[Rfam]
Shown here is a 99-nucleotide RNA sequence from Bisbaumannia pacifica, a member of the family "traJ-II RNA". Pairs were carried over by alignment from the consensus structure, which is taken from published work. The family has 47 seed sequences and 174 matches in Rfam 15.1. The match comes from Rfam's covariance-model search (50 bits). Lineage of the source: Bacteria > Pseudomonadota > Gammaproteobacteria > Oceanospirillales > Bisbaumannia.
RNA sequence: GGGCAGGAUGUGUAUUUGCUAUACCGCCGCAAGCGUCGAUCUAGCAAAUACCCACAACUUACUCGCCUGUCGGCUCGACGCAUCCUGCUCUCCGAGGGU
Numbered sequence: 001g002g003g004c005a006g007g008a009u010g011u012g013u014a015u016u017u018g019c020u021a022u023a024c025c026g027c028c029g030c031a032a033g034c035g036u037c038g039a040u041c042u043a044g045c046a047a048a049u050a051c052c053c054a055c056a057a058c059u060u061a062c063u064c065g066c067c068u069g070u071c072g073g074c075u076c077g078a079c080g081c082a083u084c085c086u087g088c089u090c091u092c093c094g095a096g097g098g099u
Stems, first nucleotide, its partner, number of pairs: 001090009012051006019044003025038002028035002058080001065074003